[Rfam]
RNA sequence: AGUGAGUGAUGACAAAAUGCUUGGUUCCAGACGAUACAUAACUGCUUAUGUAAAUUUAUUUCUGACAUU
Numbered sequence: 001a002g003u004g005a006g007u008g009a010u011g012a013c014a015a016a017a018u019g020c021u022u023g024g025u026u027c028c029a030g031a032c033g034a035u036a037c038a039u040a041a042c043u044g045c046u047u048a049u050g051u052a053a054a055u056u057u058a059u060u061u062c063u064g065a066c067a068u069u
Stems, first nucleotide, its partner, number of pairs: 001069004
RNA: Small nucleolar RNA SNORD73